[Rfam]
RNA sequence: GGCCUCCCUCUGUGGGGUGAUCGAUUGCAGGGCUCUGCAAUUGAUCGUCCCGCAGAGAGAGGCC
Numbered sequence: 001g002g003c004c005u006c007c008c009u010c011u012g013u014g015g016g017g018u019g020a021u022c023g024a025u026u027g028c029a030g031g032g033c034u035c036u037g038c039a040a041u042u043g044a045u046c047g048u049c050c051c052g053c054a055g056a057g058a059g060a061g062g063c064c
Stems, first nucleotide, its partner, number of pairs: 001064006008057023
This 64-nucleotide RNA from Myotis davidii belongs to the Rfam family "mir-9242 microRNA precursor family". Its family is annotated with RISC complex and miRNA-mediated post-transcriptional gene silencing in the Gene Ontology. Rfam 15.1 lists 940 matches to the family in 18 species.